[Rfam]
RNA sequence: CAAAAAGCAGGGUUCCGUUGCCUCUUAAGAACGGAUCUCUCGUAAACUUCAGGGAAAUCACUGCAUUGUUUUUGGGUGAACCUCUGGACUUACAAGUGCCAAAAGGUUCAGUUAAUGAUGGAACAUUU
Numbered sequence: 001c002a003a004a005a006a007g008c009a010g011g012g013u014u015c016c017g018u019u020g021c022c023u024c025u026u027a028a029g030a031a032c033g034g035a036u037c038u039c040u041c042g043u044a045a046a047c048u049u050c051a052g053g054g055a056a057a058u059c060a061c062u063g064c065a066u067u068g069u070u071u072u073u074g075g076g077u078g079a080a081c082c083u084c085u086g087g088a089c090u091u092a093c094a095a096g097u098g099c100c101a102a103a104a105g106g107u108u109c110a111g112u113u114a115a116u117g118a119u120g121g122a123a124c125a126u127u128u
Stems, first nucleotide, its partner, number of pairs: 005049003011038002014035004064120007077110007

Small nucleolar RNA snoR74: a 128-nucleotide RNA sequence from Thalictrum thalictroides. A reference for the family is Marker et al. (2002), "Experimental RNomics: identification of 140 candidates for small non-messenger RNAs in the plant Arabidopsis thaliana", Curr Biol. Its family is annotated with RNA processing and nucleolus in the Gene Ontology. It is annotated as an H/ACA-box small nucleolar RNA. Pairs were carried over by alignment from the consensus structure, which was predicted with WAR.